Record summary
The family of this 130-nucleotide sequence from Polypterus senegalus is "Small nucleolar RNA SNORA28". The literature on the family includes a 2001 paper in EMBO J by Huttenhofer et al., "RNomics: an experimental approach that identifies 201 candidates for novel, small, non-messenger RNAs in mouse". Rfam's curators write: ACA28 is a member of the H/ACA class of snoRNA that guide the sites of modification of uridines to pseudouridines. Rfam classes the family as an H/ACA-box small nucleolar RNA. Its Rfam clan is "SNORA28 clan". Rfam links the family to the GO terms nucleolus and RNA processing.

[Rfam]
RNA sequence: AAGCUACACUCUGUGUCAGAUAUUUGAAACAGUGAUUUGGCACAAUUUCAGCUUGCCAAAGCAAACUACAGUCUAACCUAUUCCAGCACUCUCUGUUUUUGGGAUUUGCUGUUAACUGGGCUGUUACAAA
Numbered sequence: 001a002a003g004c005u006a007c008a009c010u011c012u013g014u015g016u017c018a019g020a021u022a023u024u025u026g027a028a029a030c031a032g033u034g035a036u037u038u039g040g041c042a043c044a045a046u047u048u049c050a051g052c053u054u055g056c057c058a059a060a061g062c063a064a065a066c067u068a069c070a071g072u073c074u075a076a077c078c079u080a081u082u083c084c085a086g087c088a089c090u091c092u093c094u095g096u097u098u099u100u101g102g103g104a105u106u107u108g109c110u111g112u113u114a115a116c117u118g119g120g121c122u123g124u125u126a127c128a129a130a
Stems, first nucleotide, its partner, number of pairs: 009051002012044004017039005069123007081114001084111004092104003